Shown here is an 81-nucleotide RNA from Homo sapiens, a member of the family "mir-4796 microRNA precursor family".
RNA sequence: UAAAUUUGUGUCUAUACUCUGUCACUUUACUUUUGGCCUCAAGUCAUUGCAGUAAAGUGGCAGAGUAUAGACACAAAUUUA
Number, nucleotide and partner (000 for none) at each position: 001u081002a080003a079004a078005u077006u076007u075008g074009u073010g072011u071012c070013u069014a068015u067016a066017c065018u064019c063020u062021g061022u060023c059024a058025c057026u056027u055028u054029a053030c052031u051032u000033u000034u046035g045036g044037c043038c000039u000040c000041a000042a000043g037044u036045c035046a034047u000048u000049g000050c000051a031052g030053u029054a028055a027056a026057g025058u024059g023060g022061c021062a020063g019064a018065g017066u016067a015068u014069a013070g012071a011072c010073a009074c008075a007076a006077a005078u004079u003080u002081a001